[Rfam]
RNA sequence: AUAAUGAUACUCACACUCAAAAAUGUGUCUCGCUGCUAACUACAAGGGGAGGUGAAAUACCUGUGC
Numbered sequence: 001a002u003a004a005u006g007a008u009a010c011u012c013a014c015a016c017u018c019a020a021a022a023a024u025g026u027g028u029c030u031c032g033c034u035g036c037u038a039a040c041u042a043c044a045a046g047g048g049g050a051g052g053u054g055a056a057a058u059a060c061c062u063g064u065g066c
Base pairs, nucleotide, nucleotide: 012063013028014027015026016025029049030048031047034044035043050062051061052060
Dot-bracket structure: ...........(((((........))))(((..((.......))..)))(((.......))))...
A member of the RNA family "pemK RNA" from Enterococcus florum, 66 nucleotides long. Pairs were carried over by alignment from the consensus structure, which is taken from published work.